Shown here is a 31-nucleotide RNA from Bacillus coahuilensis, a member of the family "L31-Firmicutes ribosomal protein leader". Pairs were carried over by alignment from the consensus structure, which is taken from published work. NCBI's taxonomy places the organism under Bacteria, Bacillati, Bacillaceae, Bacillus, Bacillus coahuilensis. The literature on the family includes a 2020 paper in BMC Microbiol by Eckert and Weinberg, "Discovery of 20 novel ribosomal leader candidates in bacteria and archaea". It is one of the family's seed sequences.

RNA sequence: CUCUGUUUCGAAUGAUUCAGGGCGAGAGGAG
Numbered sequence: 001c002u003c004u005g006u007u008u009c010g011a012a013u014g015a016u017u018c019a020g021g022g023c024g025a026g027a028g029g030a031g
Stems, first nucleotide, its partner, number of pairs: 001022005008015002